[Rfam]
Small nucleolar RNA SNORA42/SNORA80 family: a 128-nucleotide RNA sequence from Dipodomys ordii. By type it is an H/ACA-box small nucleolar RNA. The members of this family belong to the H/ACA class of snoRNAs that guide the sites of modification of uridines to pseudouridines. Human ACA42 (SNORA42) was cloned from HeLa cells by immunoprecipitation with anti-GAR1 antibody. Its is predicted to guide the pseudouridylation of residues U109 and U572 of 18S rRNA. ACA42 shares the same host gene with ACA26, ACA46, ACA50. This family also includes mammalian snoRNA ACA67 (SNORA80) which was identified by computational screening and its expression in mouse experimentally verified by Northern blot and primer extension analysis. For this family Rfam cites "A computational screen for mammalian pseudouridylation guide H/ACA RNAs" (Schattner et al., RNA, 2006). The base pairs follow the family's consensus structure, which was predicted with RNAalifold. Gene Ontology terms of the family: RNA processing and nucleolus.
RNA sequence: GUGUAGGUUGGAUUUAUGGCAGGCCCAUCCCCCUGGGCUUCUCAGUAUCAUGCCAAAGCAAACUGUGGCCCCGAACCAUUGCCUGGUCUCUCCCUGUGCACUGUAGGCACUGAAGGGGAUACAGAGGA
Numbered sequence: 001g002u003g004u005a006g007g008u009u010g011g012a013u014u015u016a017u018g019g020c021a022g023g024c025c026c027a028u029c030c031c032c033c034u035g036g037g038c039u040u041c042u043c044a045g046u047a048u049c050a051u052g053c054c055a056a057a058g059c060a061a062a063c064u065g066u067g068g069c070c071c072c073g074a075a076c077c078a079u080u081g082c083c084u085g086g087u088c089u090c091u092c093c094c095u096g097u098g099c100a101c102u103g104u105a106g107g108c109a110c111u112g113a114a115g116g117g118g119a120u121a122c123a124g125a126g127g128a
Base pairs, nucleotide, nucleotide: 001053002052003051004050014047017044018043019042021040022039023038024036025035066121067120069118070117071116077112078111082107083106084103085102086101087100089098